[Rfam]
RNA sequence: UAAAUGAAGGAGCAAUACCAAGCCUCUUGAUAGAACAAGAAUUUUGUUAUUGCUCAUUUAA
Dot-bracket structure: .....(((.((((((((...((..(((((......)))))..))...)))))))).)))..
Plastid-psbA-4 3UTR RNA: a 61-nucleotide sequence from Tetracentron sinense. Lineage of the source: Eukaryota > Viridiplantae > Streptophyta > Mesangiospermae > Tetracentron. About the family: Plastid psbA-4 is a non-coding RNA (ncRNA) present in plastids. It was identified in inverted repeat sequences in the 3 prime untranslate region (3UTR) of photosystem II quinone-binding protein (psbA).